[Rfam]
RNA: MIR2617 microRNA precursor family
Organism: Medicago truncatula
RNA sequence: AUGACGUGUAGCAUGCCCGUUUGUGGAAUUACUCUGAUGUAUAUAAGCUAUUUUAUUUGUUUUGGGUAACGGGGUGUUACAAAUUG
Numbered sequence: 001a002u003g004a005c006g007u008g009u010a011g012c013a014u015g016c017c018c019g020u021u022u023g024u025g026g027a028a029u030u031a032c033u034c035u036g037a038u039g040u041a042u043a044u045a046a047g048c049u050a051u052u053u054u055a056u057u058u059g060u061u062u063u064g065g066g067u068a069a070c071g072g073g074g075u076g077u078u079a080c081a082a083a084u085u086g
Stems, first nucleotide, its partner, number of pairs: 002086003007081008016073006